Annotation:
The family of this 74-nucleotide sequence is "RT-6 RNA". The sequence is in the family's curated seed alignment. Pairs were carried over by alignment from the consensus structure, which is taken from published work. By type it is a small RNA.

RNA sequence: UGCCUUACAAGUAGUUGUAAGGGUUGAGAAUUGUUGUCAACAGUUCGCCGAGCAAUUCCAAUAAGAGUGAUCGG
Numbered sequence: 001u002g003c004c005u006u007a008c009a010a011g012u013a014g015u016u017g018u019a020a021g022g023g024u025u026g027a028g029a030a031u032u033g034u035u036g037u038c039a040a041c042a043g044u045u046c047g048c049c050g051a052g053c054a055a056u057u058c059c060a061a062u063a064a065g066a067g068u069g070a071u072c073g074g
Stems, first nucleotide, its partner, number of pairs: 003022008053069002056067003